[Rfam]
RNA sequence: ACAAAACGGGCAAGGAGAUUAAAUUCUUGCCUAUUUCGCGGUCAAAGUCUUGGGAGGAUUUAGAUCUUAGGCGCGCUUCGUUCGCAGCCCCGGCAACGGAAAGAUCACGCGAAACUCAAAAAACAAGGCUUCAUCGCCUUGUUUUUUUUU
Number, nucleotide and partner (000 for none) at each position: 001a000002c000003a150004a149005a148006a147007c000008g000009g000010g000011c029012a028013a027014g026015g025016a024017g000018a000019u000020u000021a000022a000023a000024u016025u015026c014027u013028u012029g011030c000031c000032u000033a000034u000035u000036u000037c111038g110039c109040g108041g000042u000043c000044a000045a000046a000047g059048u058049c057050u056051u000052g000053g000054g000055a000056g050057g049058a048059u047060u000061u000062a000063g106064a105065u104066c103067u102068u000069a000070g089071g088072c087073g085074c084075g083076c000077u000078u000079c000080g000081u000082u000083c075084g074085c073086a000087g072088c071089c070090c099091c098092g097093g000094c000095a000096a000097c092098g091099g090100a000101a000102a067103g066104a065105u064106c063107a000108c040109g039110c038111g037112a000113a000114a000115c000116u000117c000118a000119a000120a000121a000122a143123a142124c141125a140126a139127g138128g137129c136130u000131u000132c000133a000134u000135c000136g129137c128138c127139u126140u125141g124142u123143u122144u000145u000146u000147u006148u005149u004150u003